[Rfam]
The record is an 88-nucleotide RNA sequence from Anaerosolibacter carboniphilus, which matches "c-di-GMP-I riboswitch aptamer" in Rfam. GEMM was predicted in a large-scale screen for bacterial structured RNA regulatory elements. Taxonomically the source falls in Anaerosolibacter (Bacteria, Bacillati, Clostridia, Peptostreptococcales).
RNA sequence: UGCCGAUAAUUGCAAACUUAUCGAAAGGUAAGGACGCAAAGCCAUGGGUCUAAGGGAAGCUCAUUCUGAUGAUUGCCAGGUUGCCGAA
Numbered sequence: 001u002g003c004c005g006a007u008a009a010u011u012g013c014a015a016a017c018u019u020a021u022c023g024a025a026a027g028g029u030a031a032g033g034a035c036g037c038a039a040a041g042c043c044a045u046g047g048g049u050c051u052a053a054g055g056g057a058a059g060c061u062c063a064u065u066c067u068g069a070u071g072a073u074u075g076c077c078a079g080g081u082u083g084c085c086g087a088a
Stems, first nucleotide, its partner, number of pairs: 012037002017032006040082004045078003048073003055067004